Shown here is a 155-nucleotide sequence from Pochonia chlamydosporia, a member of the family "Small nucleolar RNA snR80". The family's RNA type in Rfam is H/ACA-box small nucleolar RNA. It scores 49 bits against the family's covariance model. The base pairs follow the family's consensus structure, which was predicted with WAR. A reference for the family is Schattner et al. (2004), "Genome-wide searching for pseudouridylation guide snoRNAs: analysis of the Saccharomyces cerevisiae genome", Nucleic Acids Res. Clan: SNORA28 clan. NCBI's taxonomy places the organism under Eukaryota, Ascomycota, Sordariomycetes, Hypocreales, Pochonia chlamydosporia.
[Rfam]
RNA sequence: GUAACCUUGGCUACACUCUGAAAUUCACCAGACUUCACGGUGGUUUAUUUCAAUUUUUGCUCAAGGAAGAAAACAUGUACGACGGCCCUAUACUCACCGCGACACUCCAGCAACUUUGCUUCAUGGGUGUAGUGGUCCAUUAAUUUGGCCGACAU
Dot-bracket structure: ......(((.........((((((..(((............)))..)))))).........)))...................((((.........((((.(((.(((................)))))).))))...........)))).....